This 225-nucleotide part of an RNA from Luteitalea pratensis belongs to the Rfam family "Bacterial large subunit ribosomal RNA". The base pairs follow the family's consensus structure, which is taken from published work. It scores 2863 bits against the family's covariance model.
Nucleotides: 225
Base pairs, nucleotide, nucleotide: 005082006081007080008079009078010077011076012075013074014073015072016071017070020038021037022036023035026033027032042049043048052064053063054062055061085223086222088220092213093212094211095210096209097208101189102188103187104186105185106184107183108182109181110180111179112177114146115145116144117143121138122137123136124135125134126133150174151173152172155170156169157168158167191201192200193199
Number, partner (000 for none) and nucleotide at each position: 001000u002000a003000g004000u005082u006081a007080u008079u009078c010077u011076c012075a013074g014073u015072g016071g017070c018000g019000a020038g021037g022036u023035u024000a025000a026033g027032c028000g029000u030000a031000a032027g033026c034000g035023a036022g037021c038020c039000g040000a041000a042049g043048c044000g045000a046000a047000a048043g049042c050000g051000a052064g053063u054062c055061c056000g057000a058000a059000a060000u061055g062054g063053g064052c065000g066000c067000a068000u069000a070017g071016u072015c073014g074013c075012u076011g077010g078009g079008a080007a081006u082005a083000g084000a085223c086222g087000c088220g089000a090000a091000g092213c093212g094211g095210g096209g097208u098000g099000a100000u101189c102188u103187a104186c105185c106184c107183u108182u109181g110180g111179c112177c113000a114146g115145g116144g117143u118000g119000a120000a121138g122137c123136g124135c125134g126133g127000g128000u129000a130000a131000c132000a133126c134125c135124g136123c137122g138121u139000g140000g141000a142000g143117g144116c145115c146114c147000g148000a149000a150174c151173c152172a153000g154000u155170g156169u157168u158167g159000g160000u161000u162000g163000a164000a165000a166000a167158c168157a169156g170155c171000u172152u173151g174150g175000a176000u177112g178000a179111g180110c181109u182108g183107a184106g185105g186104g187103u188102a189101g190000g191201g192200g193199u194000g195000a196000a197000a198000g199193g200192c201191u202000a203000a204000u205000c206000a207000a208097a209096c210095u211094c212093c213092g214000u215000g216000a217000u218000u219000g220088c221000c222086c223085g224000u225000u